[Rfam]
RNA sequence: CUGCACACCAGUAGACCUUAUCUGGUUCUUCCAAUAGCCAGACGAGGGGGAUGGUGCCUGCAACAGAAAACUGGGGUGGCUGUAGGCUCUGAUCAGCCUCAGGGUGGCUGAUUGAGCUGCAAUUCUCCAACACAC
Numbered sequence: 001c002u003g004c005a006c007a008c009c010a011g012u013a014g015a016c017c018u019u020a021u022c023u024g025g026u027u028c029u030u031c032c033a034a035u036a037g038c039c040a041g042a043c044g045a046g047g048g049g050g051a052u053g054g055u056g057c058c059u060g061c062a063a064c065a066g067a068a069a070a071c072u073g074g075g076g077u078g079g080c081u082g083u084a085g086g087c088u089c090u091g092a093u094c095a096g097c098c099u100c101a102g103g104g105u106g107g108c109u110g111a112u113u114g115a116g117c118u119g120c121a122a123u124u125c126u127c128c129a130a131c132a133c134a135c
Base pairs, nucleotide, nucleotide: 003061004060005059008056016047017046018045019044021042022041023040024039073128074127075126076125078124081121082120083119093111094110095109096108097107
Description
Shown here is a 135-nucleotide RNA sequence from Aegotheles bennettii, a member of the family "Small nucleolar RNA SNORA58". On this family, see Huttenhofer et al., EMBO J 2001: "RNomics: an experimental approach that identifies 201 candidates for novel, small, non-messenger RNAs in mouse". Gene Ontology terms of the family: RNA processing and nucleolus. It scores 80 bits against the family's covariance model. The organism belongs to Aegotheles, within Eukaryota. Pairs were carried over by alignment from the consensus structure, which was predicted with PFOLD. Rfam's curators write: ACA52 is a member of the H/ACA class of snoRNA that guide the sites of modification of uridines to pseudouridines. Rfam classes the family as an H/ACA-box small nucleolar RNA.